[Rfam]
RNA sequence: UAAAAAGGACCACGCCGGCUAAAAACGCCACGUCCUGUGGCGUCGCCGGCACUAGCACAUCCUGUGCG
Numbered sequence: 001u002a003a004a005a006a007g008g009a010c011c012a013c014g015c016c017g018g019c020u021a022a023a024a025a026c027g028c029c030a031c032g033u034c035c036u037g038u039g040g041c042g043u044c045g046c047c048g049g050c051a052c053u054a055g056c057a058c059a060u061c062c063u064g065u066g067c068g
Stems, first nucleotide, its partner, number of pairs: 014050006027041005055067004
Bacillaceae-1 RNA: a 68-nucleotide RNA sequence from Bacillus sp. HNG. The match comes from Rfam's covariance-model search (56 bits). The source organism's lineage runs through Bacteria, Bacillati, Bacillota, Caryophanales and Bacillus.